[Rfam]
RNA sequence: GACCCGUAUGCCGAACAGUCACCCAGUGUGUGCGUUUCCGCAAGGAAUAGGCGACGGGUUUUUU
Numbered sequence: 001g002a003c004c005c006g007u008a009u010g011c012c013g014a015a016c017a018g019u020c021a022c023c024c025a026g027u028g029u030g031u032g033c034g035u036u037u038c039c040g041c042a043a044g045g046a047a048u049a050g051g052c053g054a055c056g057g058g059u060u061u062u063u064u
Base pairs, nucleotide, nucleotide: 001060002059003058004057005056006055007054009053010052011051012050018033019032020030021029022028036047037046038045039044
Shown here is a 64-nucleotide sequence from Rosistilla oblonga, a member of the family "DUF3800-IX RNA". From the family's description: Actinobacteria, Firmicutes (1 example), Nitrospirae, Proteobacteria, Verrucomicrobia (1 example).